[Rfam]
RNA: mir-2774 microRNA precursor family
RNA sequence: ACAACAUACGGAACGUCGGUCUAUCGAGCAAUAUGACCACCGAGCGGGAAGAUCUUUCCUUUGUCGU
Numbered sequence: 001a002c003a004a005c006a007u008a009c010g011g012a013a014c015g016u017c018g019g020u021c022u023a024u025c026g027a028g029c030a031a032u033a034u035g036a037c038c039a040c041c042g043a044g045c046g047g048g049a050a051g052a053u054c055u056u057u058c059c060u061u062u063g064u065c066g067u
Stems, first nucleotide, its partner, number of pairs: 004064003010058003015053003020049003025044001028041001